[Rfam]
RNA sequence: GCCUCUGAGGAUGAUAAAAAAAAUAACUUUCGUUCUUCUGAGAUGCCUCAUGCGGAAAAAAUCUUUGGAGACCUGAACUGAAGAGGA
Numbered sequence: 001g002c003c004u005c006u007g008a009g010g011a012u013g014a015u016a017a018a019a020a021a022a023a024u025a026a027c028u029u030u031c032g033u034u035c036u037u038c039u040g041a042g043a044u045g046c047c048u049c050a051u052g053c054g055g056a057a058a059a060a061a062u063c064u065u066u067g068g069a070g071a072c073c074u075g076a077a078c079u080g081a082a083g084a085g086g087a
Stems, first nucleotide, its partner, number of pairs: 003085004
RNA: Small nucleolar RNA Z159/U59
Organism: Ziziphus jujuba